[Rfam]
RNA: Small nucleolar RNA snoR145
Organism: Abrus precatorius
RNA sequence: AUGCGAAGGUCCCAGCAGAGGGGCGAGUAACUCUUGUUGUUGAGGCCUCUCUAACCAUGAACUUUGAUACCCUUCGCAUACUUAAUCGCCGAAUCGUAGGAUGCCCAAACUUUUUUUGAUUUUUGGUGCAUCUGGAACCCUCGGCUAUAUCCUA
Numbered sequence: 001a002u003g004c005g006a007a008g009g010u011c012c013c014a015g016c017a018g019a020g021g022g023g024c025g026a027g028u029a030a031c032u033c034u035u036g037u038u039g040u041u042g043a044g045g046c047c048u049c050u051c052u053a054a055c056c057a058u059g060a061a062c063u064u065u066g067a068u069a070c071c072c073u074u075c076g077c078a079u080a081c082u083u084a085a086u087c088g089c090c091g092a093a094u095c096g097u098a099g100g101a102u103g104c105c106c107a108a109a110c111u112u113u114u115u116u117u118g119a120u121u122u123u124u125g126g127u128g129c130a131u132c133u134g135g136a137a138c139c140c141u142c143g144g145c146u147a148u149a150u151c152c153u154a
Stems, first nucleotide, its partner, number of pairs: 003077007011020001013018001025051003031044003088145005100132002103129002105126005